[Rfam]
RNA sequence: UCUCCAUUUCGCACGCUCUCUCGACCGUCAGAGAAGCGAGACAGCGUGUGAAAUGGAGGGA
Numbered sequence: 001u002c003u004c005c006a007u008u009u010c011g012c013a014c015g016c017u018c019u020c021u022c023g024a025c026c027g028u029c030a031g032a033g034a035a036g037c038g039a040g041a042c043a044g045c046g047u048g049u050g051a052a053a054u055g056g057a058g059g060g061a
Stems, first nucleotide, its partner, number of pairs: 001059007010050001012048006019041004

Shown here is a 61-nucleotide sequence from Pristionchus pacificus, a member of the family "mir-8364 microRNA precursor family". Rfam links the family to the GO terms miRNA-mediated post-transcriptional gene silencing and RISC complex. Lineage of the source: Eukaryota > Metazoa > Eumetazoa > Nematoda > Pristionchus.